Rfam assigns this 192-nucleotide RNA from Salmo trutta to the family "U2 spliceosomal RNA". The family's consensus secondary structure is taken from published work. By type it is a spliceosomal small nuclear RNA. Taxonomically the source falls in Salmo (Eukaryota, Deuterostomia, Euteleosteomorpha, Salmoniformes). Rfam describes the family as follows. U2 is a small nuclear RNA (snRNA) component of the spliceosome (involved in pre-mRNA splicing). Complementary binding between U2 snRNA (in an area lying towards the 5' end but 3' to hairpin I) and the branchpoint sequence (BPS) of the intron results the bulging out of an unpaired adenosine, on the BPS, which initiates a nucleophilic attack at the intronic 5' splice site, thus starting the first of two transesterification reactions that mediate splicing.
RNA sequence: AUAUAUUUUCUAAAAAAAAAAAAAAAAAAAAAAAAAAAUCUGUUCUUAUCAGUUUAAUAUCUGGAUAUGUCCCCCAUCGGGGGACUACAUAUUAAAUGGAUUGUUCGAACAGGGAGUCGGAAAUGGGGCUUUGCUCCAUCCGCUCACGCAUCGACCCGGUAUUGCAGUACCUCCGGGAACGGUUUGCAACAC
Number, nucleotide and partner (000 for none) at each position: 001a000002u000003a000004u000005a000006u000007u000008u000009u000010c000011u000012a000013a000014a000015a000016a000017a000018a000019a000020a000021a000022a000023a000024a000025a000026a000027a000028a000029a000030a000031a000032a000033a000034a000035a000036a000037a000038a000039u000040c000041u000042g000043u000044u000045c000046u000047u067048a066049u065050c063051a062052g061053u000054u000055u000056a000057a000058u000059a000060u000061c052062u051063g050064g000065a049066u048067a047068u000069g085070u084071c083072c082073c081074c080075c079076a000077u000078c000079g075080g074081g073082g072083g071084a070085c069086u000087a000088c000089a000090u000091a000092u000093u000094a000095a000096a000097u000098g000099g000100a000101u000102u000103g000104u000105u000106c000107g000108a000109a000110c000111a000112g000113g145114g000115a144116g143117u142118c000119g140120g139121a000122a000123a000124u000125g137126g136127g135128g134129c133130u000131u000132u000133g129134c128135u127136c126137c125138a000139u120140c119141c000142g117143c116144u115145c113146a000147c000148g185149c000150a183151u182152c181153g180154a000155c177156c176157c175158g174159g173160u000161a000162u000163u000164g000165c000166a000167g000168u000169a000170c000171c000172u000173c159174c158175g157176g156177g155178a000179a000180c153181g152182g151183u150184u000185u148186g000187c000188a000189a000190c000191a000192c000